[Rfam]
RNA sequence: AUGGGGUAAAAUAGUGAGCAGCUUUCUUGGGGAAAAUACAUCAUCAACCCUUGGGCUAAAUUUAAAUCUGUUUUUUUUUACCUAAGAAGAUUCUUUUUACCCACGGUAAAAAGUUUCUGGGGUUUAAAAAAGCAGAUUUAAACUUAUGCCAAGGGUCGAUCACUUCCCCAAGUCGGCUACUCACUAUUUUACCCCUA
Number, nucleotide and partner (000 for none) at each position: 001a000002u000003g195004g194005g193006g192007u191008a190009a189010a188011a187012u186013a185014g184015u183016g182017a181018g180019c000020a178021g177022c176023u175024u000025u000026c172027u171028u170029g169030g168031g167032g166033a165034a164035a000036a000037u000038a000039c000040a000041u000042c000043a160044u159045c158046a000047a156048c155049c154050c000051u152052u151053g150054g149055g000056c000057u146058a145059a144060a000061u000062u141063u140064a139065a138066a137067u136068c135069u134070g133071u000072u131073u130074u129075u128076u127077u126078u000079u000080a123081c122082c121083u120084a000085a118086g117087a000088a000089g000090a000091u000092u000093c113094u112095u111096u110097u109098u108099a107100c106101c105102c000103a000104c000105g101106g100107u099108a098109a097110a096111a095112a094113g093114u000115u000116u000117c086118u085119g000120g083121g082122g081123u080124u000125u000126a077127a076128a075129a074130a073131a072132g000133c070134a069135g068136a067137u066138u065139u064140a063141a062142a000143c000144u059145u058146a057147u000148g000149c054150c053151a052152a051153g000154g049155g048156u047157c000158g045159a044160u043161c000162a000163c000164u034165u033166c032167c031168c030169c029170a028171a027172g026173u000174c000175g023176g022177c021178u020179a000180c018181u017182c016183a015184c014185u013186a012187u011188u010189u009190u008191a007192c006193c005194c004195c003196u000197a000
Background:
A member of the RNA family "MIR2670 microRNA precursor family" from Medicago truncatula, 197 nucleotides long.